Annotation: A member of the RNA family "Histone 3' UTR stem-loop" from Cryptosporidium hominis, 46 nucleotides long. Taxonomically the source falls in Cryptosporidium (Eukaryota, Coccidia, Eucoccidiorida, Cryptosporidiidae). The sequence is in the family's curated seed alignment. The base pairs follow the family's consensus structure, which is taken from published work.

RNA sequence: GAACAGGUGGCACUAGCCACCAUAAAUUUUGAGAUAAAAGUUUUAG
Dot-bracket structure: .....((((((....)))))).........................